[Rfam]
RNA sequence: CGGUGGGCCACCUCUCCCCACCGAGAGGCGACUAUCUGUGAGGAUAGAUACA
Dot-bracket structure: ..........((((((......))))))...((((((....)))))).....
Record summary:
Shown here is a 52-nucleotide RNA from a Parvibaculaceae bacterium, a member of the family "serC leader". Rfam's curators write: This family is a putative regulatory RNA structure that is found upstream of the serC-serA operon in some alpha-proteobacteria. The final stem of the structure overlaps the ribosome binding site of the serC reading frame. The organism belongs to Parvibaculaceae, within Bacteria. It scores 68 bits against the family's covariance model.